[Rfam]
Nucleotides: 195
Base pairs, nucleotide, nucleotide: 013181014180015179016178017177018176019175020174023171024170025169026168027167028166029165036158060137061136063134064133065132069128070127071126072125077120
Number, partner (000 for none) and nucleotide at each position: 001000c002000u003000g004000u005000u006000g007000a008000u009000g010000u011000u012000a013181g014180a015179g016178c017177u018176c019175c020174c021000u022000u023171u024170g025169a026168u027167c028166c029165a030000a031000a032000u033000g034000a035000g036158g037000u038000a039000c040000u041000u042000g043000g044000a045000g046000g047000g048000g049000u050000u051000u052000u053000c054000u055000u056000u057000g058000a059000g060137c061136u062000g063134c064133u065132u066000a067000g068000u069128u070127a071126u072125g073000g074000a075000u076000c077120c078000c079000u080000c081000u082000g083000u084000c085000c086000u087000a088000u089000u090000c091000c092000u093000u094000g095000g096000g097000g098000a099000a100000a101000u102000a103000u104000u105000u106000g107000g108000g109000a110000u111000u112000g113000g114000c115000u116000u117000g118000a119000g120077g121000u122000u123000u124000g125072c126071a127070u128069a129000a130000c131000a132065a133064a134063g135000g136061a137060g138000a139000u140000u141000a142000a143000u144000u145000a146000g147000c148000c149000u150000u151000c152000c153000a154000u155000g156000a157000a158036c159000c160000u161000u162000c163000u164000u165029u166028g167027g168026a169025u170024u171023g172000a173000a174020g175019g176018g177017a178016g179015c180014u181013c182000u183000g184000a185000a186000a187000c188000u189000u190000g191000a192000a193000u194000a195000g
MIR159 microRNA precursor family: a 195-nucleotide RNA from Vanilla planifolia. Pairs were carried over by alignment from the consensus structure, which was predicted with WAR. A search with the family's covariance model found it, with a score of 112 bits.